[Rfam]
RNA sequence: CAUUGUCUUCGCGAGGCUAAACGCGAUAUUGAAAGCGUUAGCAUCGCGUGAGGCUAAUG
Numbered sequence: 001c002a003u004u005g006u007c008u009u010c011g012c013g014a015g016g017c018u019a020a021a022c023g024c025g026a027u028a029u030u031g032a033a034a035g036c037g038u039u040a041g042c043a044u045c046g047c048g049u050g051a052g053g054c055u056a057a058u059g
Stems, first nucleotide, its partner, number of pairs: 003056001005054004010048005016042002020039005

Annotation
A member of the RNA family "mir-8229 microRNA precursor family" from Pristionchus pacificus, 59 nucleotides long. The organism belongs to Pristionchus, within Eukaryota.